[Rfam]
RNA sequence: UUGAAGCUCCAUCAACAAAUGGAUAAGACUUUUUCUUAGUGUAUACGGGUUUUUGAAAGUCAUUUUGAAAGUAAAGGAGCAAUAAAAAAUUGCUUGUUCUAUCAAGAUCAAGAGGAUGAUAUUGCUCCUUU
Number, nucleotide and partner (000 for none) at each position: 001u000002u000003g000004a000005a000006g000007c000008u023009c022010c021011a020012u019013c000014a000015a000016c000017a000018a000019a012020u011021g010022g009023a008024u000025a000026a000027g000028a000029c000030u000031u000032u000033u000034u000035c000036u000037u000038a000039g000040u000041g000042u000043a000044u000045a000046c000047g000048g000049g000050u000051u000052u000053u000054u000055g000056a000057a000058a000059g000060u000061c000062a000063u000064u000065u000066u000067g000068a000069a000070a000071g000072u000073a131074a130075a129076g128077g127078a126079g125080c124081a123082a122083u121084a120085a000086a000087a000088a000089a000090u000091u000092g000093c106094u105095u104096g000097u000098u000099c000100u000101a000102u000103c000104a095105a094106g093107a000108u000109c000110a000111a000112g000113a000114g000115g000116a000117u000118g000119a000120u084121a083122u082123u081124g080125c079126u078127c077128c076129u075130u074131u073
The family of this 131-nucleotide sequence from Cornus canadensis is "Plastid-psbA-1 3UTR RNA". A reference for the family is Richter et al. (2023), "Retrograde signaling in plants: A critical review focusing on the GUN pathway and beyond", Plant Commun. By type it is a cis-regulatory element. Lineage of the source: Eukaryota > Embryophyta > Magnoliopsida > Cornales > Cornus. Clan: Plastid-psbA 3UTR RNA clan. Rfam's curators write: Plastid psbA-1 is a non-coding RNA (ncRNA) present in plastids. It was identified in inverted repeat sequences in the 3 prime untranslate region (3UTR) of photosystem II quinone-binding protein (psbA).